[Rfam]
RNA sequence: GGACGGGCCUCUGGAGAGACUCUCAUGAGCACCGAAGGGGAAAGCCAUAUAUGGUGAAACUCUCAGGUAAAAGGACAGGGGAUUUUAA
Numbered sequence: 001g002g003a004c005g006g007g008c009c010u011c012u013g014g015a016g017a018g019a020c021u022c023u024c025a026u027g028a029g030c031a032c033c034g035a036a037g038g039g040g041a042a043a044g045c046c047a048u049a050u051a052u053g054g055u056g057a058a059a060c061u062c063u064c065a066g067g068u069a070a071a072a073g074g075a076c077a078g079g080g081g082a083u084u085u086u087a088a
Stems, first nucleotide, its partner, number of pairs: 006083001008081006020029003031068003034064002038062003044055002
This 88-nucleotide sequence from Crassaminicella thermophila belongs to the Rfam family "Glycine riboswitch aptamer". The match comes from Rfam's covariance-model search (64 bits). The source organism's lineage runs through Bacteria, Bacillota, Clostridia, Clostridiaceae and Crassaminicella.